[Rfam]
RNA sequence: UAUUACCUGAAACAAUGAAAGCCCUACCUCUCUUCCAUCCUUACGGCUCCUUGACCGCGCCAGUGUGAAUCAGAUUUGUAAACAUUAA
Numbered sequence: 001u002a003u004u005a006c007c008u009g010a011a012a013c014a015a016u017g018a019a020a021g022c023c024c025u026a027c028c029u030c031u032c033u034u035c036c037a038u039c040c041u042u043a044c045g046g047c048u049c050c051u052u053g054a055c056c057g058c059g060c061c062a063g064u065g066u067g068a069a070u071c072a073g074a075u076u077u078g079u080a081a082a083c084a085u086u087a088a
Base pairs, nucleotide, nucleotide: 036067037066040063041062042059044057045056046055048053
RNA: BsrC